A member of the RNA family "Small nucleolar RNA SNORD22" from Neotoma lepida, 122 nucleotides long. The source organism's lineage runs through Eukaryota, Vertebrata, Glires, Muroidea and Neotoma. The family's consensus secondary structure was predicted with PFOLD. The family's RNA type in Rfam is C/D-box small nucleolar RNA.
[Rfam]
RNA sequence: UCCCAGUGAAGAAUUCUUGCAUUUCAAUUCCUGUUCUAGCCCCAGAGCUUCCUGAAGACGAACUUACUGGGGCUGGCGGAAAAAGAGAAGAACAUUGUUCCAGAAGGAAUUUCCCGAGGGAU
Numbered sequence: 001u002c003c004c005a006g007u008g009a010a011g012a013a014u015u016c017u018u019g020c021a022u023u024u025c026a027a028u029u030c031c032u033g034u035u036c037u038a039g040c041c042c043c044a045g046a047g048c049u050u051c052c053u054g055a056a057g058a059c060g061a062a063c064u065u066a067c068u069g070g071g072g073c074u075g076g077c078g079g080a081a082a083a084a085g086a087g088a089a090g091a092a093c094a095u096u097g098u099u100c101c102a103g104a105a106g107g108a109a110u111u112u113c114c115c116g117a118g119g120g121a122u
Base pairs, nucleotide, nucleotide: 001121002120003119004118
Dot-bracket structure: ((((.................................................................................................................)))).